Shown here is a 79-nucleotide RNA sequence from Legionella tunisiensis, a member of the family "RAGATH-32 RNA".
Taxonomically the source falls in Legionella (Bacteria, Pseudomonadati, Pseudomonadota, Legionellaceae).
The family's consensus secondary structure is taken from published work.
RNA sequence: GUGGCUGGACGUUCAGUCGGGAAAACCAUCUAGGAAUCUCUGUCAUCCGGCAGGGCAACUCUCUCGGGAGUUUAAGUCA
Numbered sequence: 001g002u003g004g005c006u007g008g009a010c011g012u013u014c015a016g017u018c019g020g021g022a023a024a025a026c027c028a029u030c031u032a033g034g035a036a037u038c039u040c041u042g043u044c045a046u047c048c049g050g051c052a053g054g055g056c057a058a059c060u061c062u063c064u065c066g067g068g069a070g071u072u073u074a075a076g077u078c079a
Stems, first nucleotide, its partner, number of pairs: 038055007057072006